A member of the RNA family "Prion pseudoknot" from Sciurus carolinensis, 40 nucleotides long. Rfam 15.1 lists 421 matches to the family in 241 species. A reference for the family is Barrette et al. (2001), "Pseudoknots in prion protein mRNAs confirmed by comparative sequence analysis and pattern searching", Nucleic Acids Res. It is annotated as a cis-regulatory element. Pairs were carried over by alignment from the consensus structure, which is taken from published work. About the family: This family represents a predicted pseudoknot structure found in prion protein mRNA. It has been suggested that the family has a possible effect in prion protein translation.
RNA sequence: CCGUGGAGGGGGCUGGGGACAGCCCCAAGGAGGUGGAGUG
Numbered sequence: 001c002c003g004u005g006g007a008g009g010g011g012g013c014u015g016g017g018g019a020c021a022g023c024c025c026c027a028a029g030g031a032g033g034u035g036g037a038g039u040g
Stems, first nucleotide, its partner, number of pairs: 001030002004027003